[Rfam]
RNA sequence: UAAGACCGCUAGGGGAUCCCCAAUAAAGGGGCUGAGAUGAAAGUGUUUCUUUUUAAACCCUUAUAACCUGAUCUGGUUUGUACCAGCGUAGGGAAGUGGAUUACGGCAUAA
Numbered sequence: 001u002a003a004g005a006c007c008g009c010u011a012g013g014g015g016a017u018c019c020c021c022a023a024u025a026a027a028g029g030g031g032c033u034g035a036g037a038u039g040a041a042a043g044u045g046u047u048u049c050u051u052u053u054u055a056a057a058c059c060c061u062u063a064u065a066a067c068c069u070g071a072u073c074u075g076g077u078u079u080g081u082a083c084c085a086g087c088g089u090a091g092g093g094a095a096g097u098g099g100a101u102u103a104c105g106g107c108a109u110a111a
Stems, first nucleotide, its partner, number of pairs: 006099005011061004018031004039054005067092004073086004
RNA: TPP riboswitch aptamer (THI element)